mir-181 microRNA precursor family: an 84-nucleotide RNA sequence from Scleropages formosus.
Gene Ontology terms of the family: RISC complex and miRNA-mediated post-transcriptional gene silencing.
The literature on the family includes a 2003 paper in RNA by Lagos-Quintana et al., "New microRNAs from mouse and human".
It scores 76 bits against the family's covariance model.
RNA sequence: UUGCUUCGGUGAACAUUCAACGCUGUCGGUGAGUUUGAGAUAAAUUUAAAAAACCAUCGACCGUUGAUUGUGCCCUGCAGCCAG
Numbered sequence: 001u002u003g004c005u006u007c008g009g010u011g012a013a014c015a016u017u018c019a020a021c022g023c024u025g026u027c028g029g030u031g032a033g034u035u036u037g038a039g040a041u042a043a044a045u046u047u048a049a050a051a052a053a054c055c056a057u058c059g060a061c062c063g064u065u066g067a068u069u070g071u072g073c074c075c076u077g078c079a080g081c082c083a084g
Base pairs, nucleotide, nucleotide: 001084002083003082004080005079007077008076014070015069017067018066019065020064021063022062025061026060027059028058029057030056031055033054034053035052036051